[Rfam]
RNA sequence: UGCAUAUUUACGAUUAAGAAGCAAUUGCUUCUUGUACAGAUCGUGUAUUAAUCU
Numbered sequence: 001u002g003c004a005u006a007u008u009u010a011c012g013a014u015u016a017a018g019a020a021g022c023a024a025u026u027g028c029u030u031c032u033u034g035u036a037c038a039g040a041u042c043g044u045g046u047a048u049u050a051a052u053c054u
Base pairs, nucleotide, nucleotide: 015034016033017032018031019030020029021028022027

Shown here is a 54-nucleotide RNA sequence from Musa troglodytarum, a member of the family "Plastid-rps18 3UTR RNA". The family's RNA type in Rfam is cis-regulatory element. Rfam describes the family as follows. Plastid rps18 is a non-coding RNA (ncRNA) present in plastids. It was identified as a short stem-loop motif in the 3 prime untranslate region (3UTR) of rps18 gene. A search with the family's covariance model found it, with a score of 68 bits. The base pairs follow the family's consensus structure, which was predicted with LocARNA. The source organism's lineage runs through Eukaryota, Streptophyta, Magnoliopsida, Musaceae and Musa.